[Rfam]
RNA sequence: AGACGUUCUCAGGGCAGGGUGUAAUUCCCUACCGGCGGUAAGCAGCCUGAACAGGCUGUAAGCCCGCGAGCGCCCGCUUAGGCGGGGUCAGCAGAUCCGGUGCAAUUCCGGGGCCGACGGUCACAGUCCGGAUGAAAGAGAACGCGA
Number, nucleotide and partner (000 for none) at each position: 001a000002g000003a000004c144005g143006u142007u141008c140009u139010c138011a000012g000013g000014g000015c000016a000017g029018g028019g027020u000021g000022u000023a000024a000025u000026u000027c019028c018029c017030u000031a127032c126033c116034g115035g067036c066037g065038g064039u000040a000041a000042g000043c000044a000045g000046c000047c000048u000049g000050a000051a000052c000053a000054g000055g000056c000057u000058g000059u000060a000061a000062g114063c113064c038065c037066g036067c035068g000069a000070g092071c091072g000073c000074c000075c000076g000077c000078u000079u000080a000081g000082g000083c000084g000085g000086g000087g000088u000089c000090a000091g071092c070093a000094g000095a000096u112097c111098c110099g109100g108101u000102g000103c000104a000105a000106u000107u000108c100109c099110g098111g097112g096113g063114c062115c034116g033117a000118c130119g129120g128121u000122c000123a000124c000125a000126g032127u031128c120129c119130g118131g000132a000133u000134g000135a000136a000137a000138g010139a009140g008141a007142a006143c005144g004145c000146g000147a000

Rfam assigns this 147-nucleotide RNA from Acetobacter pasteurianus to the family "FMN riboswitch aptamer (RFN element)".
Gene Ontology term of the family: FMN binding.
The source organism's lineage runs through Bacteria, Pseudomonadati, Pseudomonadota, Acetobacteraceae and Acetobacter.